[Rfam]
RNA sequence: AACAACAGUGAUGAGUUCUACAGACCUGUAAUGAAUUGCGAACAUGAUCGCAACUCUUUAUGAACAUCUAAGGGACUGAGUUGUG
Numbered sequence: 001a002a003c004a005a006c007a008g009u010g011a012u013g014a015g016u017u018c019u020a021c022a023g024a025c026c027u028g029u030a031a032u033g034a035a036u037u038g039c040g041a042a043c044a045u046g047a048u049c050g051c052a053a054c055u056c057u058u059u060a061u062g063a064a065c066a067u068c069u070a071a072g073g074g075a076c077u078g079a080g081u082u083g084u085g
Stems, first nucleotide, its partner, number of pairs: 002084005
Dot-bracket structure: .(((((.........................................................................))))).
Shown here is an 85-nucleotide sequence from Coffea canephora, a member of the family "Small nucleolar RNA SNORD25". The family's consensus secondary structure was predicted with PFOLD. The family's RNA type in Rfam is C/D-box small nucleolar RNA. The literature on the family includes a 1996 paper in Nature by Tycowski et al., "A mammalian gene with introns instead of exons generating stable RNA products". The organism belongs to Coffea, within Eukaryota.